[Rfam]
RNA sequence: GUUCACUGUGAUGCUUAUACCAACCAUGCUAAUGCUGAGAUCAUUUGCUGAAGAACUCAUUAUAUGCUUAUCUGAGGGAAUU
Number, nucleotide and partner (000 for none) at each position: 001g081002u080003u079004c078005a000006c000007u000008g000009u000010g000011a000012u000013g000014c000015u000016u000017a000018u000019a000020c000021c000022a000023a000024c000025c000026a000027u000028g000029c000030u000031a000032a000033u000034g000035c000036u000037g000038a000039g000040a000041u000042c000043a000044u000045u000046u000047g000048c000049u000050g000051a000052a000053g000054a000055a000056c000057u000058c000059a000060u000061u000062a000063u000064a000065u000066g000067c000068u000069u000070a000071u000072c000073u000074g000075a000076g000077g000078g004079a003080a002081u001082u000
Small nucleolar RNA snoR53Y: an 82-nucleotide RNA sequence from Cocos nucifera. The source organism's lineage runs through Eukaryota, Streptophytina, Arecoideae, Attaleinae and Cocos. Pairs were carried over by alignment from the consensus structure, which was predicted with WAR. It scores 50 bits against the family's covariance model.